Source information:
A member of the RNA family "mir-50 microRNA precursor family" from Caenorhabditis brenneri, 62 nucleotides long. Clan: mir-50 clan. On this family, see Lau et al., Science 2001: "An abundant class of tiny RNAs with probable regulatory roles in Caenorhabditis elegans". Rfam 15.1 lists 65 matches to the family in 64 species.
[Rfam]
RNA sequence: UGAUAUGUCUGGUAUUCUUGGGUUCAUUCCUUACUCUGAACCAGUUUAUUAGACGUAUCGAC
Numbered sequence: 001u002g003a004u005a006u007g008u009c010u011g012g013u014a015u016u017c018u019u020g021g022g023u024u025c026a027u028u029c030c031u032u033a034c035u036c037u038g039a040a041c042c043a044g045u046u047u048a049u050u051a052g053a054c055g056u057a058u059c060g061a062c
Stems, first nucleotide, its partner, number of pairs: 001060014021042004